[Rfam]
RNA sequence: CUACUUGCCUGCAUCCUGAUACCAUGAUCACCAAGGUGGUUCUCCCAGGGCAAGGCUUAUCUCUGGCACUCCGGAUGUGCUGACCCCUGCAGUCUCUUCAAAUGUGGAGAACUUGACUGCAUAAUUUGUGGUAGUGGGGGACUGUAUUCGUAUUUUCUAUUG
Numbered sequence: 001c002u003a004c005u006u007g008c009c010u011g012c013a014u015c016c017u018g019a020u021a022c023c024a025u026g027a028u029c030a031c032c033a034a035g036g037u038g039g040u041u042c043u044c045c046c047a048g049g050g051c052a053a054g055g056c057u058u059a060u061c062u063c064u065g066g067c068a069c070u071c072c073g074g075a076u077g078u079g080c081u082g083a084c085c086c087c088u089g090c091a092g093u094c095u096c097u098u099c100a101a102a103u104g105u106g107g108a109g110a111a112c113u114u115g116a117c118u119g120c121a122u123a124a125u126u127u128g129u130g131g132u133a134g135u136g137g138g139g140g141a142c143u144g145u146a147u148u149c150g151u152a153u154u155u156u157c158u159a160u161u162g
Stems, first nucleotide, its partner, number of pairs: 011120003018042002021040005047088004054081003058077005090115003093111001094109002097107002136161002139158003144153003

The family of this 162-nucleotide RNA sequence from Otolemur garnettii is "U1 spliceosomal RNA". The base pairs follow the family's consensus structure, which is taken from published work. Taxonomically the source falls in Otolemur (Eukaryota, Metazoa, Craniata, Lorisiformes).